[Rfam]
RNA sequence: CGCCCUUGCGCGGGAGAGUUCCGUGGCCGCCAGCCACGGACGCCGAAGGAGCAACACCUCUCCGUCAACCUCUCAGGCACCCAGGACCGCACCGGGCCC
Numbered sequence: 001c002g003c004c005c006u007u008g009c010g011c012g013g014g015a016g017a018g019u020u021c022c023g024u025g026g027c028c029g030c031c032a033g034c035c036a037c038g039g040a041c042g043c044c045g046a047a048g049g050a051g052c053a054a055c056a057c058c059u060c061u062c063c064g065u066c067a068a069c070c071u072c073u074c075a076g077g078c079a080c081c082c083a084g085g086a087c088c089g090c091a092c093c094g095g096g097c098c099c
Stems, first nucleotide, its partner, number of pairs: 006094001008092001010090004020040006042078003045074002049072003056065002
Shown here is a 99-nucleotide RNA from Mycolicibacterium aurum, a member of the family "Glycine riboswitch aptamer". From the family's description: This family represents the bacterial glycine riboswitch.